[Rfam]
RNA sequence: UCGCCCACAAUGCCUUUCACGGGUUCAGCACGGAUGCGGCCGGGUAGUAGUGUCUUUGAACACAUCUCCUUGGCCGGUUGGCGCAAAAGCGUCGAAGCUCUGCAAAGGGGCAUCUCUGCUGGAAUCGUGAUCGGCGUCGAUCGCGCCGAGUAGUCGGUUCCUCCAAUGGUCUCCUCGCGCUAACCCCGUAGCGUGUGGUUUUUAGCGGGCUCCAGGCCCGCUUUUUUUU
Numbered sequence: 001u002c003g004c005c006c007a008c009a010a011u012g013c014c015u016u017u018c019a020c021g022g023g024u025u026c027a028g029c030a031c032g033g034a035u036g037c038g039g040c041c042g043g044g045u046a047g048u049a050g051u052g053u054c055u056u057u058g059a060a061c062a063c064a065u066c067u068c069c070u071u072g073g074c075c076g077g078u079u080g081g082c083g084c085a086a087a088a089g090c091g092u093c094g095a096a097g098c099u100c101u102g103c104a105a106a107g108g109g110g111c112a113u114c115u116c117u118g119c120u121g122g123a124a125u126c127g128u129g130a131u132c133g134g135c136g137u138c139g140a141u142c143g144c145g146c147c148g149a150g151u152a153g154u155c156g157g158u159u160c161c162u163c164c165a166a167u168g169g170u171c172u173c174c175u176c177g178c179g180c181u182a183a184c185c186c187c188g189u190a191g192c193g194u195g196u197g198g199u200u201u202u203u204a205g206c207g208g209g210c211u212c213c214a215g216g217c218c219c220g221c222u223u224u225u226u227u228u229u
Stems, first nucleotide, its partner, number of pairs: 005169003018129005024123007032115006038075003043070002046067002050063004078095007098109004131149005173198002176195007204222008

Notes: Rfam assigns this 229-nucleotide RNA sequence from Paraburkholderia steynii to the family "Burkholderia sRNA Bp1_Cand871_SIPHT". Rfam classes the family as a small RNA. The source organism's lineage runs through Bacteria, Pseudomonadati, Pseudomonadota, Betaproteobacteria and Paraburkholderia.